[Rfam]
RNA sequence: AGCGUGAGUAGAAGCGGUUAGAUACCUAAACAUAAGGUGUCGGGACAUUGCUCAUAGU
Dot-bracket structure: ....((((((....[..((.(((((((.......))))))).]))...))))))....
The family of this 58-nucleotide RNA from Vibrio sp. EJY3 is "Xanthine riboswitch aptamer (NMT1 RNA)". The literature on the family includes a 2020 paper in RNA by Yu and Breaker, "A bacterial riboswitch class senses xanthine and uric acid to regulate genes associated with purine oxidation". Pairs were carried over by alignment from the consensus structure, which is taken from published work.